This 109-nucleotide sequence from Streptomyces carminius belongs to the Rfam family "Streptomyces RNA 4115".
Rfam classes the family as a small RNA.
A search with the family's covariance model found it, with a score of 91 bits.
Identified by deep sequencing of transcriptome at the end of exponential growth phase. Sequencing size consistent with notrthern blot size. Streptomyces specific.
Pairs were carried over by alignment from the consensus structure.
[Rfam]
RNA sequence: GCGUGGGUCGGCCCGCUGAACUGGACACAGUGGGCUGGGGGAAAGCCGUCGCCCCAUUCCCCGCGGGCGGCGGUACGGUCCGGGAGGCGACGAUGCCUCCCGGACUGCC
Numbered sequence: 001g002c003g004u005g006g007g008u009c010g011g012c013c014c015g016c017u018g019a020a021c022u023g024g025a026c027a028c029a030g031u032g033g034g035c036u037g038g039g040g041g042a043a044a045g046c047c048g049u050c051g052c053c054c055c056a057u058u059c060c061c062c063g064c065g066g067g068c069g070g071c072g073g074u075a076c077g078g079u080c081c082g083g084g085a086g087g088c089g090a091c092g093a094u095g096c097c098u099c100c101c102g103g104a105c106u107g108c109c
Base pairs, nucleotide, nucleotide: 001108002107006076009037010036011035012034013033014032015031016030017029018028046073047072048071049070050069051068052067053066054065077106078105079104080103081102082101083100084099085098086097087096088095089094